[Rfam]
RNA sequence: CCUUGGAAGUGUUAGACCACUUGAGUAGUAUUAGAAAUAAUGCGAAAAAGAACACAAUGAAUAAGGAA
Numbered sequence: 001c002c003u004u005g006g007a008a009g010u011g012u013u014a015g016a017c018c019a020c021u022u023g024a025g026u027a028g029u030a031u032u033a034g035a036a037a038u039a040a041u042g043c044g045a046a047a048a049a050g051a052a053c054a055c056a057a058u059g060a061a062u063a064a065g066g067a068a
Stems, first nucleotide, its partner, number of pairs: 001066005009055005020050003028043005

Shown here is a 68-nucleotide RNA sequence from Acetoanaerobium sticklandii, a member of the family "RAGATH-18 RNA". Rfam's curators put it in the seed alignment. By type it is a small RNA.